About this RNA
Shown here is a 243-nucleotide RNA sequence from Neospora caninum, a member of the family "Protozoan signal recognition particle RNA".
RNA sequence: CUCGCUGUCACCCAAGUGGGGGUCGUCCGUUGGUGGCAGGAGAAGGCACUGUCCUGCCUAUCACCGGGUACGAGUGACAAUCUGCCCCUUGCAAGGCCGCAGUCGCCAGUGGGAUGGAGACGGAGGUCCCCAUCUCUCGGGUGAUGAUGAGACGCGGAACGCCUAAGGCUGGAAACAGAGCAGGGAAAAGUGUCCGCUGUGGCGCAGAGCAGGGAUCACAGAAUGUCACCCCGGCUGAUCAAG
Numbered sequence: 001c002u003c004g005c006u007g008u009c010a011c012c013c014a015a016g017u018g019g020g021g022g023u024c025g026u027c028c029g030u031u032g033g034u035g036g037c038a039g040g041a042g043a044a045g046g047c048a049c050u051g052u053c054c055u056g057c058c059u060a061u062c063a064c065c066g067g068g069u070a071c072g073a074g075u076g077a078c079a080a081u082c083u084g085c086c087c088c089u090u091g092c093a094a095g096g097c098c099g100c101a102g103u104c105g106c107c108a109g110u111g112g113g114a115u116g117g118a119g120a121c122g123g124a125g126g127u128c129c130c131c132a133u134c135u136c137u138c139g140g141g142u143g144a145u146g147a148u149g150a151g152a153c154g155c156g157g158a159a160c161g162c163c164u165a166a167g168g169c170u171g172g173a174a175a176c177a178g179a180g181c182a183g184g185g186a187a188a189a190g191u192g193u194c195c196g197c198u199g200u201g202g203c204g205c206a207g208a209g210c211a212g213g214g215a216u217c218a219c220a221g222a223a224u225g226u227c228a229c230c231c232c233g234g235c236u237g238a239u240c241a242a243g
Stems, first nucleotide, its partner, number of pairs: 011020003058243002061237001064234004078225002081222004086214002089212004095205001097202007104143004109138001111136007119128003145149001151194005162185003169178003
Its Rfam clan is "SRP clan".
For this family Rfam cites "SRPDB: Signal Recognition Particle Database" (Rosenblad et al., Nucleic Acids Res, 2003).
Rfam classes the family as a non-coding RNA gene.
Lineage of the source: Eukaryota > Alveolata > Eucoccidiorida > Eimeriorina > Neospora.